[Rfam]
RNA: sraA
RNA sequence: AGGUAAUCGAGUAUAUGGGGAUAAAUAUCUCACAUUCAACGACUGAACGUGUGUAAAAAAAAAUGGGGGGCUAAAACCCCCCAUUUUAUCGUUU
Dot-bracket structure: .........(((...(((((.......))))).))).........................(((((((((.(...)))))))))).........